[Rfam]
The record is a 56-nucleotide sequence, which matches "Glutamine-II riboswitch aptamer" in Rfam. Rfam's curators put it in the seed alignment. The literature on the family includes a 2019 paper in Nucleic Acids Res by Huang et al., "Structure and ligand binding of the glutamine-II riboswitch". The base pairs follow the family's consensus structure, which is taken from published work.
RNA sequence: AUUCGUUCACCCAGAACUGGGCGCAGUCCGAGCUAUACCAAGGAACGGGGGAUAGC
Number, nucleotide and partner (000 for none) at each position: 001a000002u000003u000004c047005g046006u045007u044008c043009a000010c021011c020012c019013a018014g000015a000016a000017c000018u013019g012020g011021g010022c000023g000024c000025a000026g000027u000028c000029c000030g000031a000032g056033c055034u054035a053036u052037a000038c050039c049040a000041a000042g000043g008044a007045a006046c005047g004048g000049g039050g038051g000052a036053u035054a034055g033056c032